[Rfam]
RNA sequence: GAAGUCGUCCGGGCGGACGCCGGUGGGUGCAGGAAACGGCCCACGGGAGGCAAAGUCCGGGCUUCGCAGGGCAAGGUGCUGGCUAACGGCCAGGCGGGGCAACCCGACGGAAAGUGGCACAGAAAACAUACCGCCGGUCCUUCCCGGGCCGGUAAGGGUGAAAAGGUGCGGUAAGAGCGCACCGCACCCCUGGUGACAGGGGUGGCAGGCUAAACCCCACCUGAAGCAAGGGCGAAUAGGGAGGCGCCCUCCGAGAGGAGGGCAGGGGCUGCCCGUCCCGAGACCUCCGGGUACGCCCGCUCGAGCCUGUCGGCAACGGCAGGCCUAGACGAAUGUCCGUCUACCGCCGCAAGGCGGGAUCCAGAACCCGGCUUACAGGGCGACUUCGGCA
Number, nucleotide and partner (000 for none) at each position: 001g387002a386003a385004g384005u383006c382007g381008u380009c379010c378011g376012g341013g340014c339015g338016g337017a336018c335019g000020c047021c046022g000023g044024u043025g042026g041027g040028u039029g000030c000031a000032g000033g000034a000035a000036a000037c000038g000039g028040c027041c026042c025043a024044c023045g000046g021047g020048a000049g000050g000051c000052a000053a374054a373055g372056u000057c371058c370059g369060g368061g367062c226063u225064u224065c223066g000067c000068a000069g274070g273071g272072c271073a000074a222075g221076g220077u219078g218079c093080u092081g091082g090083c089084u000085a000086a000087c000088g000089g083090c082091c081092a080093g079094g108095c106096g105097g104098g103099g000100c000101a000102a000103c098104c097105c096106g095107a000108c094109g217110g216111a000112a000113a000114g215115u214116g211117g210118c209119a000120c000121a000122g000123a000124a000125a000126a000127c000128a000129u000130a000131c157132c156133g153134c152135c151136g150137g149138u148139c147140c146141u000142u000143c000144c000145c000146g140147g139148g138149c137150c136151g135152g134153u133154a000155a000156g132157g131158g000159u000160g000161a000162a000163a000164a000165g183166g182167u181168g180169c179170g178171g000172u000173a000174a000175g000176a000177g000178c170179g169180c168181a167182c166183c165184g206185c204186a203187c202188c201189c200190c199191u198192g197193g000194u000195g000196a000197c192198a191199g190200g189201g188202g187203u186204g185205g000206c184207a000208g000209g118210c117211u116212a000213a000214a115215c114216c110217c109218c078219a077220c076221c075222u074223g065224a064225a063226g062227c000228a000229a000230g298231g297232g296233c295234g000235a000236a000237u000238a000239g000240g288241g287242a286243g285244g284245c000246g000247c000248c000249c000250u000251c000252c000253g000254a000255g000256a000257g000258g000259a000260g000261g000262g000263c000264a000265g279266g278267g277268g276269c275270u000271g072272c071273c070274c069275g269276u268277c267278c266279c265280g000281a000282g000283a000284c244285c243286u242287c241288c240289g000290g000291g000292u000293a000294c000295g233296c232297c231298c230299g000300c000301u000302c000303g000304a000305g324306c323307c322308u321309g320310u319311c318312g317313g000314c000315a000316a000317c312318g311319g310320c309321a308322g307323g306324c305325c000326u000327a000328g000329a000330c000331g000332a000333a000334u000335g018336u017337c016338c015339g014340u013341c012342u000343a000344c000345c000346g000347c000348c000349g000350c000351a000352a000353g000354g000355c000356g000357g000358g000359a000360u000361c000362c000363a000364g000365a000366a000367c061368c060369c059370g058371g057372c055373u054374u053375a000376c011377a000378g010379g009380g008381c007382g006383a005384c004385u003386u002387c001388g000389g000390c000391a000
Rfam assigns this 391-nucleotide sequence from Vulgatibacter incomptus to the family "Bacterial RNase P class A". The family's consensus secondary structure is taken from published work. NCBI's taxonomy places the organism under Bacteria, Myxococcia, Myxococcales, Cystobacterineae, Vulgatibacter. By type it is a ribozyme.